[Rfam]
RNA sequence: CUCCCAACAAUAUCCUGGUGCUGAGUGAUGACACAUACAACUCCAGCAUCAGUGAUUUUGUUGAAGA
Dot-bracket structure: .....(((((.((((((((((((....................))))))))).))).))))).....
Numbered sequence: 001c002u003c004c005c006a007a008c009a010a011u012a013u014c015c016u017g018g019u020g021c022u023g024a025g026u027g028a029u030g031a032c033a034c035a036u037a038c039a040a041c042u043c044c045a046g047c048a049u050c051a052g053u054g055a056u057u058u059u060g061u062u063g064a065a066g067a
Stems, first nucleotide, its partner, number of pairs: 006062005012056003015052009